A member of the RNA family "Plastid-psbN 5UTR RNA" from Gossypium gossypioides, 61 nucleotides long. The base pairs follow the family's consensus structure, which was predicted with LocARNA. Taxonomically the source falls in Gossypium (Eukaryota, Euphyllophyta, Pentapetalae, Malvoideae). A reference for the family is Richter et al. (2023), "Retrograde signaling in plants: A critical review focusing on the GUN pathway and beyond", Plant Commun. Rfam's curators write: Plastid psbN is a non-coding RNA (ncRNA) recognised in plastids. It was reported as a conserved 11 stem-loop in the prime untranslated region (5UTR) of psbN genes. It has been reported that the motif is retained in a subset of mature transcripts in barley, which can suggests a possible role in transcript alternative 5 prime processing. It scores 59 bits against the family's covariance model.
RNA sequence: UGCGACACCCAUCAAAGGAGUUGUUCCUCAUCUAUGGACUAUCUUACCAUAUUCCGAAUUC
Numbered sequence: 001u002g003c004g005a006c007a008c009c010c011a012u013c014a015a016a017g018g019a020g021u022u023g024u025u026c027c028u029c030a031u032c033u034a035u036g037g038a039c040u041a042u043c044u045u046a047c048c049a050u051a052u053u054c055c056g057a058a059u060u061c
Stems, first nucleotide, its partner, number of pairs: 017045002020042002023039004